[Rfam]
Rfam assigns this 364-nucleotide RNA from Oceanobacillus iheyensis to the family "transfer-messenger RNA".

RNA sequence: GGGGACGUUACGGAUUCGACAGGGAUAGAUUGAGCUCAGGUUGCACGUCGAGGUUACGGCUCGUAAAACGUUAUGCCUAAAUAUAACUGGCAAAGAAACUAAUCAACCUGUUUUAGCAGCUGCGUAAGUAGCCUAAAACGAUCCUUCCUGGCAUCGCCCGUGUGGCAGAUUGAAGGGUCUCAAAUUAAGCGGGCUAUGCUACGAUCCUCCGCCUGGGGAUUUGUAGAUGAAUCUAAUCAGGCUAGCUCCAUGAAAGCCUGUUGGUAGGCCAACAUGAGAGCGAAUGAUAAUAUACCAACUACGCGUGUAGAAGCCUGAGUGGCGAUAUCCUUGGACGAGGGUUCGACUCCCUCCGUCUCCACCA
Numbered sequence: 001g002g003g004g005a006c007g008u009u010a011c012g013g014a015u016u017c018g019a020c021a022g023g024g025a026u027a028g029a030u031u032g033a034g035c036u037c038a039g040g041u042u043g044c045a046c047g048u049c050g051a052g053g054u055u056a057c058g059g060c061u062c063g064u065a066a067a068a069c070g071u072u073a074u075g076c077c078u079a080a081a082u083a084u085a086a087c088u089g090g091c092a093a094a095g096a097a098a099c100u101a102a103u104c105a106a107c108c109u110g111u112u113u114u115a116g117c118a119g120c121u122g123c124g125u126a127a128g129u130a131g132c133c134u135a136a137a138a139c140g141a142u143c144c145u146u147c148c149u150g151g152c153a154u155c156g157c158c159c160g161u162g163u164g165g166c167a168g169a170u171u172g173a174a175g176g177g178u179c180u181c182a183a184a185u186u187a188a189g190c191g192g193g194c195u196a197u198g199c200u201a202c203g204a205u206c207c208u209c210c211g212c213c214u215g216g217g218g219a220u221u222u223g224u225a226g227a228u229g230a231a232u233c234u235a236a237u238c239a240g241g242c243u244a245g246c247u248c249c250a251u252g253a254a255a256g257c258c259u260g261u262u263g264g265u266a267g268g269c270c271a272a273c274a275u276g277a278g279a280g281c282g283a284a285u286g287a288u289a290a291u292a293u294a295c296c297a298a299c300u301a302c303g304c305g306u307g308u309a310g311a312a313g314c315c316u317g318a319g320u321g322g323c324g325a326u327a328u329c330c331u332u333g334g335a336c337g338a339g340g341g342u343u344c345g346a347c348u349c350c351c352u353c354c355g356u357c358u359c360c361a362c363c364a
Stems, first nucleotide, its partner, number of pairs: 001360007020333008034320009044307005049063004054073001056071003112138003116134001119132002141178006148168003152164003156194006200226001204222001211242006245281002247278001249276004256269003260299004266293001337353005

The family is grouped with related families in Rfam's "tRNA clan". The family's consensus secondary structure is taken from published work. Rfam links the family to the GO term RNA catabolic process. For this family Rfam cites "Probing the structure of the Escherichia coli 10Sa RNA (tmRNA)" (Felden et al., RNA, 1997).